Small nucleolar RNA U19: a 129-nucleotide RNA sequence from Arabis nemorensis. Rfam classes the family as an H/ACA-box small nucleolar RNA. The base pairs follow the family's consensus structure, which was predicted with WAR. On this family, see Marker et al., Curr Biol 2002: "Experimental RNomics: identification of 140 candidates for small non-messenger RNAs in the plant Arabidopsis thaliana". NCBI's taxonomy places the organism under Eukaryota, Embryophyta, Magnoliopsida, Brassicales, Arabis.

RNA sequence: AUUGGGCUUAGUUAGGAGGCAUAAAUCAAUCUGGAUCAUCAAUACUUUACUGUAUUGUUUGAUUUUGAGGUCUUUUUGAGGAGGAGCUUUUGCUCAAUUCAAGCUUCUUCCAAGCAGCCUCAGACAUUA
Numbered sequence: 001a002u003u004g005g006g007c008u009u010a011g012u013u014a015g016g017a018g019g020c021a022u023a024a025a026u027c028a029a030u031c032u033g034g035a036u037c038a039u040c041a042a043u044a045c046u047u048u049a050c051u052g053u054a055u056u057g058u059u060u061g062a063u064u065u066u067g068a069g070g071u072c073u074u075u076u077u078g079a080g081g082a083g084g085a086g087c088u089u090u091u092g093c094u095c096a097a098u099u100c101a102a103g104c105u106u107c108u109u110c111c112a113a114g115c116a117g118c119c120u121c122a123g124a125c126a127u128u129a
Base pairs, nucleotide, nucleotide: 005020007018008017009016034064035063036062037061038060042058043057044056046054065123066122067121068120069119070118071117075114076113077112078111080110081109082108083107084106085105086104087103088102